[Rfam]
RNA sequence: GGCGAGUUGGCAGAGCGGUGAUGCAAAUGAUUGCAAAUCAUUACCAGGCCGGUUCGACUCCGGUGCUCGCCU
Numbered sequence: 001g002g003c004g005a006g007u008u009g010g011c012a013g014a015g016c017g018g019u020g021a022u023g024c025a026a027a028u029g030a031u032u033g034c035a036a037a038u039c040a041u042u043a044c045c046a047g048g049c050c051g052g053u054u055c056g057a058c059u060c061c062g063g064u065g066c067u068c069g070c071c072u
Stems, first nucleotide, its partner, number of pairs: 001071007010024003026042005048064005
Dot-bracket structure: (((((((..(((.........))).(((((.......))))).....(((((.......)))))))))))).
The family of this 72-nucleotide sequence from Marinobacterium sp. LSUCC0821 is "tRNA". NCBI's taxonomy places the organism under Bacteria, Pseudomonadati, Pseudomonadota, Oceanospirillaceae, Marinobacterium. It scores 48 bits against the family's covariance model. Rfam links the family to the GO term triplet codon-amino acid adaptor activity.